[Rfam]
RNA sequence: GCCUCUGAUGAUGAUGAAAAGAAACUUUCGUUCUGUUGAGAAAUUCCAUGCUGAAAAUUUAUGGAGACUUGAACUGGAGAGGC
Dot-bracket structure: ..((((.......................................................................))))..
Numbered sequence: 001g002c003c004u005c006u007g008a009u010g011a012u013g014a015u016g017a018a019a020a021g022a023a024a025c026u027u028u029c030g031u032u033c034u035g036u037u038g039a040g041a042a043a044u045u046c047c048a049u050g051c052u053g054a055a056a057a058u059u060u061a062u063g064g065a066g067a068c069u070u071g072a073a074c075u076g077g078a079g080a081g082g083c
Stems, first nucleotide, its partner, number of pairs: 003081004